[Rfam]
RNA sequence: CUCACGGUGCUUCUUUAUUGAAAUGUGUUAAAAUAUUAUUAUCAUCCCCACCAUAAAUAACCAUUAUGGCAUUCAUAGAGAUUAAA
Numbered sequence: 001c002u003c004a005c006g007g008u009g010c011u012u013c014u015u016u017a018u019u020g021a022a023a024u025g026u027g028u029u030a031a032a033a034u035a036u037u038a039u040u041a042u043c044a045u046c047c048c049c050a051c052c053a054u055a056a057a058u059a060a061c062c063a064u065u066a067u068g069g070c071a072u073u074c075a076u077a078g079a080g081a082u083u084a085a086a
Stems, first nucleotide, its partner, number of pairs: 012081006020074001022073004026044002029041003048069003
A member of the RNA family "rpsL sRNA" from Chrysochloris asiatica, 86 nucleotides long. A reference for the family is Meyer et al. (2009), "Identification of candidate structured RNAs in the marine organism 'Candidatus Pelagibacter ubique'", BMC Genomics.